[Rfam]
Shown here is a 177-nucleotide RNA sequence from Gadus morhua, a member of the family "Small nucleolar RNA SNORA23". Pairs were carried over by alignment from the consensus structure, which was predicted with RNAalifold. Rfam's curators write: The members of this family belong to the H/ACA class of snoRNAs which are thought to guide the sites of modification of uridines to pseudouridines. This family includes human snoRNA ACA23 (SNORA23) and mouse snoMBI-1. ACA23 is predicted to guide the pseudouridylation of residue U3737 and U4331 of 28S rRNA. The literature on the family includes a 2001 paper in EMBO J by Huttenhofer et al., "RNomics: an experimental approach that identifies 201 candidates for novel, small, non-messenger RNAs in mouse".
RNA sequence: GGUGGAUGGUGUGCACAGUGUAAUCUGUGUUAUGCGCUGUUGCGGGACUGUGUUUUACAGCCUCCGCAGCAGUGCUCAUGCCACACCUGAAGCCAUAGACUAACUGGUGAUCAUAGUACUGGCCCUUGACGUCUUCAUUGACACACCAUUGGUCGGCCUCCAUAUUCUCCUACAAUG
Number, nucleotide and partner (000 for none) at each position: 001g000002g000003u000004g000005g000006a000007u000008g000009g000010u000011g000012u000013g000014c089015a000016c000017a000018g000019u000020g000021u000022a000023a000024u000025c000026u000027g000028u083029g082030u000031u000032a079033u078034g077035c074036g073037c072038u071039g070040u069041u000042g067043c066044g064045g063046g062047a000048c000049u059050g058051u057052g000053u000054u000055u000056u000057a051058c050059a049060g000061c000062c046063u045064c044065c000066g043067c042068a000069g040070c039071a038072g037073u036074g035075c000076u000077c034078a033079u032080g000081c000082c029083a028084c000085a000086c000087c000088u000089g014090a000091a000092g000093c000094c000095a000096u000097a000098g000099a000100c000101u000102a000103a000104c000105u000106g170107g169108u000109g167110a166111u000112c000113a000114u000115a000116g000117u000118a000119c156120u155121g154122g153123c152124c151125c000126u000127u148128g147129a000130c000131g144132u143133c000134u141135u140136c000137a000138u000139u000140g135141a134142c000143a132144c131145a000146c000147c128148a127149u000150u000151g124152g123153u122154c121155g120156g119157c000158c000159u000160c000161c000162a000163u000164a000165u000166u110167c109168u000169c107170c106171u000172a000173c000174a000175a000176u000177g000
It is annotated as an H/ACA-box small nucleolar RNA.